Bacterial RNase P class A: a 324-nucleotide sequence from Hydrogenimonas thermophila.
NCBI's taxonomy places the organism under Bacteria, Campylobacterota, Epsilonproteobacteria, Campylobacterales, Hydrogenimonas.
It is annotated as a ribozyme.
RNA sequence: AAGGUACGGCGGAUGCUUGCUUGGUUUAGCUAAGAGGAAAGUCCGGGCUGCAGUGAAGCAGGGUUCCGUCUAACGGACGGCCACCGUAAGGUGAGGGAUAGUGCAACAGAAAGCAAACCGCCUCGUAAGAGGUAAGGGUGAAACGGUGGGGUAAGAGCCCACCAGCGCCUUGAGCAAUCUUGGCGGCUAUGUAAACCCAACCCGCAGCAAGAAGAGCAUGGUAUAAGCUUCACAUUUUCGCUCUUCGCUAGAGCUUCAUGGUAACAUGAAGAGUAGAUAAAUAAGCAUCCAAGACAUAACCCGGCUUACAGCCGUACCUAAUAA
Numbered sequence: 001a002a003g004g005u006a007c008g009g010c011g012g013a014u015g016c017u018u019g020c021u022u023g024g025u026u027u028a029g030c031u032a033a034g035a036g037g038a039a040a041g042u043c044c045g046g047g048c049u050g051c052a053g054u055g056a057a058g059c060a061g062g063g064u065u066c067c068g069u070c071u072a073a074c075g076g077a078c079g080g081c082c083a084c085c086g087u088a089a090g091g092u093g094a095g096g097g098a099u100a101g102u103g104c105a106a107c108a109g110a111a112a113g114c115a116a117a118c119c120g121c122c123u124c125g126u127a128a129g130a131g132g133u134a135a136g137g138g139u140g141a142a143a144c145g146g147u148g149g150g151g152u153a154a155g156a157g158c159c160c161a162c163c164a165g166c167g168c169c170u171u172g173a174g175c176a177a178u179c180u181u182g183g184c185g186g187c188u189a190u191g192u193a194a195a196c197c198c199a200a201c202c203c204g205c206a207g208c209a210a211g212a213a214g215a216g217c218a219u220g221g222u223a224u225a226a227g228c229u230u231c232a233c234a235u236u237u238u239c240g241c242u243c244u245u246c247g248c249u250a251g252a253g254c255u256u257c258a259u260g261g262u263a264a265c266a267u268g269a270a271g272a273g274u275a276g277a278u279a280a281a282u283a284a285g286c287a288u289c290c291a292a293g294a295c296a297u298a299a300c301c302c303g304g305c306u307u308a309c310a311g312c313c314g315u316a317c318c319u320a321a322u323a324a
Stems, first nucleotide, its partner, number of pairs: 002319009011309001012289007020034006039307003043304005048207004058231001061203005066080005081095001082093004096198002101196002103192003118137002120133005145163006165187001166185004172179002211246004225237003254271007